[Rfam]
RNA: TPP riboswitch aptamer (THI element)
RNA sequence: GAAUGCUCGUUGGGGCGCCCCGGUCGGGGCUGAGAUGUGCCAGGCACAGCACCCAUCGAACCUGAUCCGGGUCAUGCCGGCGAAGGGAACGGGCCAUGCCGCGAU
Numbered sequence: 001g002a003a004u005g006c007u008c009g010u011u012g013g014g015g016c017g018c019c020c021c022g023g024u025c026g027g028g029g030c031u032g033a034g035a036u037g038u039g040c041c042a043g044g045c046a047c048a049g050c051a052c053c054c055a056u057c058g059a060a061c062c063u064g065a066u067c068c069g070g071g072u073c074a075u076g077c078c079g080g081c082g083a084a085g086g087g088a089a090c091g092g093g094c095c096a097u098g099c100c101g102c103g104a105u
Base pairs, nucleotide, nucleotide: 006093007092008091009090010089011055012054013053014052017030018029019028020027021026037047038046039045040044061086062085063084067080068079069078070077